[Rfam]
RNA sequence: AGCUUGGAGAGUUUGAUCCUGGCUCAGAACGAACGCUGGCGGCGUGCCUAACACAUGCAAGUCGAACGUGAAAGUCCUUCGGGAUGAGUAAAGUGGCGCACGGGUGAGUAACACGUAGGUGACCUGCCUUUUAGAGGGGAAUAACCAGAAGAAAUUUUGGCUAAUGCCGCAUACGAAGCACGGUUUUAAGACUGUGCUUGAAAGAAUGCCUCUGCAUAUGCAUUCGCUAUUAGAUGGGCCUGCGGGACAUUAGCUAGUUGGUGGGGUAAAGGCCUACCAAGGCGACGAUGUCUAUCCGGUCUGAGAGGAUGAUCGGACACACUGGAACUGAGACACGGUCCAGACUCCUACGGGAGGCAGCAGUGGGGAAUAUUGCGCAAUGGGGGAAACCCUGACGCAGCAACGCCGCGUGAGUGAGGAAGGACUUCGGUCUGUAAAGCUCUGUUAAUGUGGAAAAAUGGCAGUUGGUCUAAUAGGCCGAUUGUUUGAUGGUACACAUAGAGGAAGCACCGGCUAACUUCGUGCCAGCAGCCGCGGUAAUACGAAGGGUGCAAGCGUUGUUCGGAUUUAUUG
Numbered sequence: 001a002g003c004u005u006g007g008a009g010a011g012u013u014u015g016a017u018c019c020u021g022g023c024u025c026a027g028a029a030c031g032a033a034c035g036c037u038g039g040c041g042g043c044g045u046g047c048c049u050a051a052c053a054c055a056u057g058c059a060a061g062u063c064g065a066a067c068g069u070g071a072a073a074g075u076c077c078u079u080c081g082g083g084a085u086g087a088g089u090a091a092a093g094u095g096g097c098g099c100a101c102g103g104g105u106g107a108g109u110a111a112c113a114c115g116u117a118g119g120u121g122a123c124c125u126g127c128c129u130u131u132u133a134g135a136g137g138g139g140a141a142u143a144a145c146c147a148g149a150a151g152a153a154a155u156u157u158u159g160g161c162u163a164a165u166g167c168c169g170c171a172u173a174c175g176a177a178g179c180a181c182g183g184u185u186u187u188a189a190g191a192c193u194g195u196g197c198u199u200g201a202a203a204g205a206a207u208g209c210c211u212c213u214g215c216a217u218a219u220g221c222a223u224u225c226g227c228u229a230u231u232a233g234a235u236g237g238g239c240c241u242g243c244g245g246g247a248c249a250u251u252a253g254c255u256a257g258u259u260g261g262u263g264g265g266g267u268a269a270a271g272g273c274c275u276a277c278c279a280a281g282g283c284g285a286c287g288a289u290g291u292c293u294a295u296c297c298g299g300u301c302u303g304a305g306a307g308g309a310u311g312a313u314c315g316g317a318c319a320c321a322c323u324g325g326a327a328c329u330g331a332g333a334c335a336c337g338g339u340c341c342a343g344a345c346u347c348c349u350a351c352g353g354g355a356g357g358c359a360g361c362a363g364u365g366g367g368g369a370a371u372a373u374u375g376c377g378c379a380a381u382g383g384g385g386g387a388a389a390c391c392c393u394g395a396c397g398c399a400g401c402a403a404c405g406c407c408g409c410g411u412g413a414g415u416g417a418g419g420a421a422g423g424a425c426u427u428c429g430g431u432c433u434g435u436a437a438a439g440c441u442c443u444g445u446u447a448a449u450g451u452g453g454a455a456a457a458a459u460g461g462c463a464g465u466u467g468g469u470c471u472a473a474u475a476g477g478c479c480g481a482u483u484g485u486u487u488g489a490u491g492g493u494a495c496a497c498a499u500a501g502a503g504g505a506a507g508c509a510c511c512g513g514c515u516a517a518c519u520u521c522g523u524g525c526c527a528g529c530a531g532c533c534g535c536g537g538u539a540a541u542a543c544g545a546a547g548g549g550u551g552c553a554a555g556c557g558u559u560g561u562u563c564g565g566a567u568u569u570a571u572u573g
Base pairs, nucleotide, nucleotide: 009025010024011023012022013021027563028562029561030560032559033558034557035556036555037554039409040408041407042406043405044404045402046401047367052365053364054363056362057361058360061097062096063095066094067093069090070089074085075084076083077082104320105319106318114244115243116242117241118240119239120238123237124236128233129232132229133228134227136170138168139167145160146159147158148157149156150155176199177198178197179196180195181194182193183192184191185190204225205224206223207222208221209220246292247291248290253283254282255281258280259279260278261277262276263275264274265273295317296316297315298314299310300309301308302307322343323342324341325340326339345356346355347354348353373399375398376397377396381394382393383392384391385390412442413441414440415439422433423432424431425430446504448499449498450497451496452495456490462484463483464482465481466480467479468478507552508551509550510549511548518547519546520545521544522543528535529534
The record is a 573-nucleotide part of an RNA from Bacteriovorax stolpii, which matches "Bacterial small subunit ribosomal RNA" in Rfam. The organism belongs to Bacteriovorax, within Bacteria. Rfam 15.1 lists 42,628 matches to the family in 10,626 species.